[Rfam]
RNA sequence: GUGCCAUGAUGUCAACUGUCAACACGUCAUUCUGAAGAAGAACUGUGUGGAGAUCUUCUGGGACUGAGCACA
Numbered sequence: 001g002u003g004c005c006a007u008g009a010u011g012u013c014a015a016c017u018g019u020c021a022a023c024a025c026g027u028c029a030u031u032c033u034g035a036a037g038a039a040g041a042a043c044u045g046u047g048u049g050g051a052g053a054u055c056u057u058c059u060g061g062g063a064c065u066g067a068g069c070a071c072a
Stems, first nucleotide, its partner, number of pairs: 001071004

A member of the RNA family "Small nucleolar RNA SNORD63" from Notiomystis cincta, 72 nucleotides long. Taxonomically the source falls in Notiomystis (Eukaryota, Eumetazoa, Gnathostomata, Euteleostomi). About the family: snoRNA U63 is found in both humans and mice. Rfam classes the family as a C/D-box small nucleolar RNA. For this family Rfam cites "Purified box C/D snoRNPs are able to reproduce site-specific 2'-O-methylation of target RNA in vitro" (Galardi et al., Mol Cell Biol, 2002). It scores 57 bits against the family's covariance model. Rfam links the family to the GO terms RNA processing and nucleolus.